[Rfam]
RNA sequence: GAUCUGUGAACCUUGGCACUGGAAGAAUUCACAGACUAGAUUUUAAAGGAUCGUGAGUCUCCUGGUGUCAAUUUUUGCAGAUC
Numbered sequence: 001g002a003u004c005u006g007u008g009a010a011c012c013u014u015g016g017c018a019c020u021g022g023a024a025g026a027a028u029u030c031a032c033a034g035a036c037u038a039g040a041u042u043u044u045a046a047a048g049g050a051u052c053g054u055g056a057g058u059c060u061c062c063u064g065g066u067g068u069c070a071a072u073u074u075u076u077g078c079a080g081a082u083c
Stems, first nucleotide, its partner, number of pairs: 003081008013071006020064003023060001025059002029056004034051001

The family of this 83-nucleotide RNA from Cinara cedri is "mir-263 microRNA precursor family". The source organism's lineage runs through Eukaryota, Paraneoptera, Lachninae, Cinara and Cinara. The family is grouped with related families in Rfam's "mir-182 clan".